[Rfam]
RNA: Small nucleolar RNA Z159/U59
Organism: Coptis chinensis
RNA sequence: GUCUCUAAUAAUGAUCAAAACAAUACUUUCGUUCUUCGAGAUAAUAUAUCGCGGAAACUUUUGGAGACUGGCUGAAGAGAC
Numbered sequence: 001g002u003c004u005c006u007a008a009u010a011a012u013g014a015u016c017a018a019a020a021c022a023a024u025a026c027u028u029u030c031g032u033u034c035u036u037c038g039a040g041a042u043a044a045u046a047u048a049u050c051g052c053g054g055a056a057a058c059u060u061u062u063g064g065a066g067a068c069u070g071g072c073u074g075a076a077g078a079g080a081c
Stems, first nucleotide, its partner, number of pairs: 003079004